[Rfam]
The record is a 77-nucleotide RNA sequence from Crocodylus porosus, which matches "Mammalian CPEB3 ribozyme" in Rfam. The match comes from Rfam's covariance-model search (46 bits).
RNA sequence: UGUCGCAAGUUCAAGGCCACAGCAAAAGCACUAAUAGUGCUGCCUUGUCGGAUUCCAAUGAAUCUGUGAAUUCUGCU
Number, nucleotide and partner (000 for none) at each position: 001u000002g000003u000004c000005g000006c000007a000008a000009g000010u000011u000012c000013a000014a045015g044016g043017c042018c000019a000020c000021a077022g076023c075024a074025a000026a072027a071028g040029c039030a038031c000032u000033a000034a000035u000036a000037g000038u030039g029040c028041u000042g017043c016044c015045u014046u000047g000048u000049c066050g065051g064052a063053u062054u061055c060056c000057a000058a000059u000060g055061a054062a053063u052064c051065u050066g049067u000068g000069a000070a000071u027072u026073c000074u024075g023076c022077u021
Pairs were carried over by alignment from the consensus structure, which is taken from published work.